[Rfam]
RNA sequence: GCCCACUUCUUCGGGGAGUAGCCGCCCGGUGCGCGACGUACCGGGGCGCACGUCAACAUACUUGUGGCCGAAAGGCGACAUGGCGUGUGCAGCAAUCGCCUGGCAAGACCGAUGAUGCCUGUCCCAACCUGACCGGGUCGCGGGGGCGCGCAUCAUCGUCGUGUCACAGUGCGGCCCGGUU
Numbered sequence: 001g002c003c004c005a006c007u008u009c010u011u012c013g014g015g016g017a018g019u020a021g022c023c024g025c026c027c028g029g030u031g032c033g034c035g036a037c038g039u040a041c042c043g044g045g046g047c048g049c050a051c052g053u054c055a056a057c058a059u060a061c062u063u064g065u066g067g068c069c070g071a072a073a074g075g076c077g078a079c080a081u082g083g084c085g086u087g088u089g090c091a092g093c094a095a096u097c098g099c100c101u102g103g104c105a106a107g108a109c110c111g112a113u114g115a116u117g118c119c120u121g122u123c124c125c126a127a128c129c130u131g132a133c134c135g136g137g138u139c140g141c142g143g144g145g146g147c148g149c150g151c152a153u154c155a156u157c158g159u160c161g162u163g164u165c166a167c168a169g170u171g172c173g174g175c176c177c178g179g180u181u
Stems, first nucleotide, its partner, number of pairs: 026044003046090010063080002067076003094181004
Shown here is a 181-nucleotide RNA sequence from Paraburkholderia sp. LEh10, a member of the family "Manganese Mn2+ riboswitch aptamer (yybP-ykoY)".
It scores 51 bits against the family's covariance model.
Taxonomically the source falls in Paraburkholderia (Bacteria, Pseudomonadati, Betaproteobacteria, Burkholderiaceae).